RNA sequence: UUGUCACCUGGUGUUCUCCUCAAACCACUUCAGUUGCUAGCUAGCUUCUGCCUCAUUCUUGCAUUGGCACUGUUUUAUAAGUGCGCAAUGCAGGGAUAUGGAGUUUUGCAUAGUGAAGUGUUUGGGGGAACUCCGGGUGCCAA
Numbered sequence: 001u002u003g004u005c006a007c008c009u010g011g012u013g014u015u016c017u018c019c020u021c022a023a024a025c026c027a028c029u030u031c032a033g034u035u036g037c038u039a040g041c042u043a044g045c046u047u048c049u050g051c052c053u054c055a056u057u058c059u060u061g062c063a064u065u066g067g068c069a070c071u072g073u074u075u076u077a078u079a080a081g082u083g084c085g086c087a088a089u090g091c092a093g094g095g096a097u098a099u100g101g102a103g104u105u106u107u108g109c110a111u112a113g114u115g116a117a118g119u120g121u122u123u124g125g126g127g128g129a130a131c132u133c134c135g136g137g138u139g140c141c142a143a
Base pairs, nucleotide, nucleotide: 005139006138007137008136009135011133013131014130015129016128017127018126019125020124022123023122024121026120027119028118029117030116031115032114034112